[Rfam]
RNA sequence: UCAUACUAGCUGGGGAGUUAGCGGUGCCCUGUAUCUACAAUCCGCUUUAGUAGAGGUGAUGUCGGGCUUAAGGGAAAUUUUAGUAUCAAAGCCUUGCUUUAAAGGUGUUGAGAAAAUAGUCCUGUAUUGUAGAGAGUCAGCGAACCGUGUCAGGGCGGGAACGAAGCAGCACUAAGUUGAUUUCUCUAGGUUUACAGGGUCGCUGUUUUUGAGUCUUUAAGGCAAGAAACAGGUGGUAAAAUUCUUUCGAGAGCCCGAUGUAUGA
Numbered sequence: 001u002c003a004u005a006c007u008a009g010c011u012g013g014g015g016a017g018u019u020a021g022c023g024g025u026g027c028c029c030u031g032u033a034u035c036u037a038c039a040a041u042c043c044g045c046u047u048u049a050g051u052a053g054a055g056g057u058g059a060u061g062u063c064g065g066g067c068u069u070a071a072g073g074g075a076a077a078u079u080u081u082a083g084u085a086u087c088a089a090a091g092c093c094u095u096g097c098u099u100u101a102a103a104g105g106u107g108u109u110g111a112g113a114a115a116a117u118a119g120u121c122c123u124g125u126a127u128u129g130u131a132g133a134g135a136g137u138c139a140g141c142g143a144a145c146c147g148u149g150u151c152a153g154g155g156c157g158g159g160a161a162c163g164a165a166g167c168a169g170c171a172c173u174a175a176g177u178u179g180a181u182u183u184c185u186c187u188a189g190g191u192u193u194a195c196a197g198g199g200u201c202g203c204u205g206u207u208u209u210u211g212a213g214u215c216u217u218u219a220a221g222g223c224a225a226g227a228a229a230c231a232g233g234u235g236g237u238a239a240a241a242u243u244c245u246u247u248c249g250a251g252a253g254c255c256c257g258a259u260g261u262a263u264g265a
Stems, first nucleotide, its partner, number of pairs: 001265006009057003012030004017025003034054005062258007070247006078241005084235004094225006102218002104215003112210009121198006127190002130188005136181006147172004156163002
Bacterial large signal recognition particle RNA: a 265-nucleotide RNA from Leptotrichia sp. oral taxon 215. Taxonomically the source falls in Leptotrichia sp. oral taxon 215 (Bacteria, Fusobacteriia, Leptotrichiaceae, Leptotrichia). On this family, see Regalia et al., Nucleic Acids Res 2002: "Prediction of signal recognition particle RNA genes". The family's RNA type in Rfam is non-coding RNA gene. The base pairs follow the family's consensus structure, which is taken from published work.